[Rfam]
Nucleotides: 138
Stems, first nucleotide, its partner, number of pairs: 002019006027049005032040001034039001065082007084109004093100002111131006
Number, partner (000 for none) and nucleotide at each position: 001000c002019c003018a004017u005016c006015u007014g008000u009000a010000u011000c012000a013000c014007c015006a016005g017004a018003u019002g020000a021000a022000c023000c024000u025000a026000g027049g028048a029047g030046c031045c032040u033000g034039a035000a036000u037000a038000a039034u040032g041000u042000a043000g044000c045031g046030g047029c048028u049027c050000u051000g052000a053000c054000a055000a056000u057000g058000u059000a060000a061000c062000g063000a064000a065082g066081g067080u068079u069078g070077g071076c072000a073000u074000u075000u076071g077070c078069c079068a080067a081066u082065c083000g084109g085108g086107a087106u088000c089000u090000a091000a092000a093100u094099c095000g096000u097000g098000a099094g100093a101000g102000g103000a104000c105000g106087a107086u108085c109084c110000u111131c112130c113129u114128g115127a116126u117000a118000a119000c120000c121000a122000c123000a124000a125000a126116a127115u128114c129113g130112g131111g132000u133000g134000a135000g136000u137000g138000c
Shown here is a 138-nucleotide RNA from Vibrio thalassae, a member of the family "Group II catalytic intron D1-D4-7". Gene Ontology term of the family: Group II intron splicing. A reference for the family is Bonen and Vogel (2001), "The ins and outs of group II introns", Trends Genet.